[Rfam]
RNA sequence: UAUAUUUUCUUUAGGUUUAGGUUAGAAGCGUGCUCGUCGCGACCCCUGCCAGCCCUUUUCAGGGCUGCAAUUCUACA
Number, nucleotide and partner (000 for none) at each position: 001u000002a000003u000004a000005u000006u000007u000008u000009c000010u000011u000012u000013a000014g045015g044016u000017u042018u041019a000020g000021g000022u000023u075024a074025g073026a072027a071028g040029c039030g038031u000032g000033c000034u000035c000036g000037u000038c030039g029040c028041g018042a017043c000044c015045c014046c000047u000048g000049c000050c067051a066052g065053c064054c063055c062056u061057u000058u000059u000060c000061a056062g055063g054064g053065c052066u051067g050068c000069a000070a000071u027072u026073c025074u024075a023076c000077a000